[Rfam]
RNA sequence: ACUUUAGAAAGUAAAAACACAGUUUGGUUGGUAGUCCAAACAUAGCCUAGCUAUCAGUAUCCUUCCCCCUCCUUGGGAUGUCCUGCUUUCGGUAAAACUUG
Numbered sequence: 001a002c003u004u005u006a007g008a009a010a011g012u013a014a015a016a017a018c019a020c021a022g023u024u025u026g027g028u029u030g031g032u033a034g035u036c037c038a039a040a041c042a043u044a045g046c047c048u049a050g051c052u053a054u055c056a057g058u059a060u061c062c063u064u065c066c067c068c069c070u071c072c073u074u075g076g077g078a079u080g081u082c083c084u085g086c087u088u089u090c091g092g093u094a095a096a097a098c099u100u101g
Base pairs, nucleotide, nucleotide: 005092007090008089009088010087011086022041023040024039025038026037027036042054043053044052045051046050064078065077066076067075
RNA: azaaromatic riboswitch aptamer (yjdF RNA)